The record is a 75-nucleotide RNA from Dysgonomonas mossii, which matches "Bacteroidetes FopS (family of paralogous sRNAs)" in Rfam. Rfam 15.1 lists 822 matches to the family in 178 species. The RNA-binding protein RbpB and BTncRNA_FopS sRNA are involved in the post-transcription regulation of polysaccharide utilisation loci (PUL). Taxonomically the source falls in Dysgonomonas mossii (Bacteria, Pseudomonadati, Bacteroidales, Dysgonomonas).
RNA sequence: GUAUUUUUCAUGGUAUUAGACUUUAGGUUAUAAAAUUGAAGAUUGGUUGUCGUGAUGACAGCCUUUUUGUUUUUA
Number, nucleotide and partner (000 for none) at each position: 001g000002u000003a000004u000005u000006u000007u000008u000009c000010a000011u000012g000013g000014u000015a000016u000017u000018a000019g000020a000021c000022u000023u000024u000025a000026g000027g000028u000029u000030a000031u000032a000033a000034a000035a000036u000037u000038g000039a000040a000041g000042a000043u000044u000045g063046g062047u061048u060049g059050u058051c057052g000053u000054g000055a000056u000057g051058a050059c049060a048061g047062c046063c045064u000065u000066u000067u000068u000069g000070u000071u000072u000073u000074u000075a000